[Rfam]
Nucleotides: 115
Stems, first nucleotide, its partner, number of pairs: 003113008017029003031095002033084002035048004043082002051060003064080005086098003
Number, partner (000 for none) and nucleotide at each position: 001000g002000a003113a004112u005111a006110u007109c008108u009107u010106c011000g012000g013000g014000g015000c016000a017029g018028g019027g020000u021000g022000a023000a024000a025000u026000u027019c028018c029017c030000g031095a032094c033084c034083g035048g036047c037046g038045g039000u040000a041000a042000a043082g044081c045038c046037c047036g048035c049000g050000a051060g052059c053058c054000g055000a056000a057000a058053g059052g060051c061000u062000g063000a064080c065079c066078u067077g068076g069000u070000g071000a072000a073000a074000u075000u076068c077067c078066a079065g080064g081044g082043c083034c084033g085000a086098c087097a088096g089000u090000u091000a092000a093000a094032g095031u096088c097087u098086g099000g100000a101000u102000g103000g104000g105000a106010g107009a108008a109007g110006g111005u112004a113003u114000u115000a
Shown here is a 115-nucleotide RNA sequence from Caloramator australicus, a member of the family "FMN riboswitch aptamer (RFN element)". The match comes from Rfam's covariance-model search (126 bits). Pairs were carried over by alignment from the consensus structure, which is taken from published work.